This 102-nucleotide RNA from Erysipelothrix inopinata belongs to the Rfam family "Purine riboswitch aptamer".
RNA sequence: ACUAUUGUCUCGUAAAAACUCCAUAUAUUUCUGGUAAUAAGGUCCGGAAGUCUCUACUUGUGUCCCGUAAAGAUACGAACUAUGGCAAAAGAGAAUUUGCAA
Numbered sequence: 001a002c003u004a005u006u007g008u009c010u011c012g013u014a015a016a017a018a019c020u021c022c023a024u025a026u027a028u029u030u031c032u033g034g035u036a037a038u039a040a041g042g043u044c045c046g047g048a049a050g051u052c053u054c055u056a057c058u059u060g061u062g063u064c065c066c067g068u069a070a071a072g073a074u075a076c077g078a079a080c081u082a083u084g085g086c087a088a089a090a091g092a093g094a095a096u097u098u099g100c101a102a
Base pairs, nucleotide, nucleotide: 021085022084023083024082025081029049030048031047032046033045034044058078059077060076061075062074063073064072
About this RNA:
Pairs were carried over by alignment from the consensus structure, which is taken from published work. The organism belongs to Erysipelothrix, within Bacteria.